[Rfam]
RNA sequence: AGAUAUUGGGGAGAUGGAUCCGGGCCGAGCGUCAAAUCGGUCACCGCUUGGCGGCCCGGGGAGUCAGUGGUGAGACCGCCCCCGACCCAC
Numbered sequence: 001a002g003a004u005a006u007u008g009g010g011g012a013g014a015u016g017g018a019u020c021c022g023g024g025c026c027g028a029g030c031g032u033c034a035a036a037u038c039g040g041u042c043a044c045c046g047c048u049u050g051g052c053g054g055c056c057c058g059g060g061g062a063g064u065c066a067g068u069g070g071u072g073a074g075a076c077c078g079c080c081c082c083c084g085a086c087c088c089a090c
Stems, first nucleotide, its partner, number of pairs: 006085006013065003020059008039077002041073005
RNA: c-di-GMP-II-GAG riboswitch aptamer